[Rfam]
Nucleotides: 133
Base pairs, nucleotide, nucleotide: 001056002055003054004053005052006051014043015042016041017040018038019037020036022034023033024032068124069123071121072120073119074118076115078113079112082110085108086106087105088104089103
Number, partner (000 for none) and nucleotide at each position: 001056g002055c003054a004053g005052a006051c007000u008000c009000a010000c011000u012000c013000u014043g015042u016041a017040c018038u019037g020036a021000a022034c023033u024032g025000c026000a027000g028000u029000c030000u031000u032024c033023a034022g035000u036020u037019c038018a039000g040017g041016u042015g043014c044000u045000u046000u047000u048000u049000c050000u051006g052005u053004c054003u055002g056001c057000g058000a059000g060000a061000g062000u063000a064000a065000u066000u067000g068124u069123u070000c071121a072120c073119a074118g075000g076115a077000g078113u079112g080000a081000c082110a083000a084000u085108c086106g087105c088104c089103u090000u091000c092000u093000u094000u095000c096000u097000c098000a099000u100000a101000g102000a103089a104088g105087g106086c107000u108085g109000u110082u111000a112079c113078a114000a115076u116000u117000g118074c119073u120072g121071u122000u123069g124068g125000g126000a127000c128000a129000u130000u131000g132000c133000c
Rfam assigns this 133-nucleotide RNA sequence from Nestor notabilis to the family "Small nucleolar RNA SNORA77". It is annotated as an H/ACA-box small nucleolar RNA. For this family Rfam cites "A computational screen for mammalian pseudouridylation guide H/ACA RNAs" (Schattner et al., RNA, 2006). ACA63 (SNORA77) is a member of the H/ACA class of snoRNAs that guide the sites of modification of uridines to pseudouridines. This snoRNA was identified by computational screening and its expression in mouse experimentally verified by Northern blot and primer extension analysis. ACA63 is proposed to guide the pseudouridylation of 18S rRNA U814. Lineage of the source: Eukaryota > Metazoa > Amniota > Psittacidae > Nestor. Its family is annotated with nucleolus and RNA processing in the Gene Ontology.